[Rfam]
RNA sequence: GCGUGCCAGUGAUGAUUACAGAGAUAAAAAAUGGUGAAUUCUGGAUGAGCGGUGCUCGCGUGUCGCUGCGUGCGCGCGCGCUCGGCCGUGGUGAUAUCCCUUGCUCAGUUCAUCUGAGGCACGC
Numbered sequence: 001g002c003g004u005g006c007c008a009g010u011g012a013u014g015a016u017u018a019c020a021g022a023g024a025u026a027a028a029a030a031a032u033g034g035u036g037a038a039u040u041c042u043g044g045a046u047g048a049g050c051g052g053u054g055c056u057c058g059c060g061u062g063u064c065g066c067u068g069c070g071u072g073c074g075c076g077c078g079c080g081c082u083c084g085g086c087c088g089u090g091g092u093g094a095u096a097u098c099c100c101u102u103g104c105u106c107a108g109u110u111c112a113u114c115u116g117a118g119g120c121a122c123g124c
Base pairs, nucleotide, nucleotide: 002123003122004121005120006119007118
A member of the RNA family "Small nucleolar RNA Z188" from Oryza sativa, 124 nucleotides long. The family has 21 seed sequences and 104 matches in Rfam 15.1. The family's RNA type in Rfam is C/D-box small nucleolar RNA. On this family, see Chen et al., Nucleic Acids Res 2003: "The high diversity of snoRNAs in plants: identification and comparative study of 120 snoRNA genes from Oryza sativa". Rfam's curators put it in the seed alignment. NCBI's taxonomy places the organism under Eukaryota, Viridiplantae, Mesangiospermae, Petrosaviidae, Oryza sativa. Its family is annotated with nucleolus and RNA processing in the Gene Ontology. The family's consensus secondary structure was predicted with PFOLD.